[Rfam]
RNA: MIR5269 microRNA precursor family
Organism: Medicago truncatula
RNA sequence: UUAGUUGAAAUCAUUGUGGGUCUAUACUUUGAAAAUUGAACUCACACAAAGUGGUAGAACAUACCUUGAUUUCAUCCAA
Numbered sequence: 001u002u003a004g005u006u007g008a009a010a011u012c013a014u015u016g017u018g019g020g021u022c023u024a025u026a027c028u029u030u031g032a033a034a035a036u037u038g039a040a041c042u043c044a045c046a047c048a049a050a051g052u053g054g055u056a057g058a059a060c061a062u063a064c065c066u067u068g069a070u071u072u073c074a075u076c077c078a079a
Stems, first nucleotide, its partner, number of pairs: 001079002004076001006074008016064003022057003025053007